The family of this 179-nucleotide RNA from Clostridium sp. C105KSO13 is "6S / SsrS RNA". E. coli 6S RNA was the first non coding RNA to be sequenced, but its function was unknown until recently. It consists of 184 nucleotides that fold into an extended hairpin structure with a large single-stranded internal bulge. The 6S RNA specifically associates with RNA polymerase holoenzyme containing the sigma70 specificity factor. This interaction represses expression from a sigma70-dependent promoter during stationary phase. 6S RNA homologs have recently been identified in most bacterial genomes. Many Gram-positive species have two copies of 6S RNA. In Bacillus subtilis, both copies appear to interact with RNA polymerase holoenzyme containing the housekeeping sigma factor and be expressed during different stages of growth. In many proteobacteria, 6S RNA may be processed from a transcript encoding homologs of the E. coli YgfA protein which is a putative 5-formyltetrahydrofolate cycloligase activity. By type it is a non-coding RNA gene.
RNA sequence: AAAAACCUGGAAUGUUCGACCCCCCUGUUAUUUUGAACCUACAGCACUUUAAACGGGAUUCCUACAUUUCUGUAAUAUGUCAAGCCUCCAGUUUGCAGGGGAAGACAGAAAAGCAGAUGCGGUUGCCCACCUAGCAUUAGCUAGGAGUCAAAAUACAGGACCGGCAUUUCGGGGAUUCU
Numbered sequence: 001a002a003a004a005a006c007c008u009g010g011a012a013u014g015u016u017c018g019a020c021c022c023c024c025c026u027g028u029u030a031u032u033u034u035g036a037a038c039c040u041a042c043a044g045c046a047c048u049u050u051a052a053a054c055g056g057g058a059u060u061c062c063u064a065c066a067u068u069u070c071u072g073u074a075a076u077a078u079g080u081c082a083a084g085c086c087u088c089c090a091g092u093u094u095g096c097a098g099g100g101g102a103a104g105a106c107a108g109a110a111a112a113g114c115a116g117a118u119g120c121g122g123u124u125g126c127c128c129a130c131c132u133a134g135c136a137u138u139a140g141c142u143a144g145g146a147g148u149c150a151a152a153a154u155a156c157a158g159g160a161c162c163g164g165c166a167u168u169u170c171g172g173g174g175a176u177u178c179u
Stems, first nucleotide, its partner, number of pairs: 002177002006173010017163002029155004034150003038145002055128003061122002066118001069117005079106002085101004

A search with the family's covariance model found it, with a score of 62 bits. The source organism's lineage runs through Bacteria, Bacillati, Bacillota, Clostridia and Clostridium.